[Rfam]
RNA sequence: UGGGGUGAAAUCCUGGUCCCAUUGAAGUCAAUGGGAGUUUUGCCAUUGACUUCAGUGGGACCAGGAUUUCACCCUA
Numbered sequence: 001u002g003g004g005g006u007g008a009a010a011u012c013c014u015g016g017u018c019c020c021a022u023u024g025a026a027g028u029c030a031a032u033g034g035g036a037g038u039u040u041u042g043c044c045a046u047u048g049a050c051u052u053c054a055g056u057g058g059g060a061c062c063a064g065g066a067u068u069u070c071a072c073c074c075u076a
Stems, first nucleotide, its partner, number of pairs: 002075003006071005012065002015062002018059003022054001024053011
This 76-nucleotide RNA from Chrysemys picta belongs to the Rfam family "mir-1677 microRNA precursor family". It scores 85 bits against the family's covariance model. NCBI's taxonomy places the organism under Eukaryota, Vertebrata, Euteleostomi, Tetrapoda, Chrysemys picta. The family has 5 seed sequences and 310 matches in Rfam 15.1. The base pairs follow the family's consensus structure, which was predicted with RNAalifold.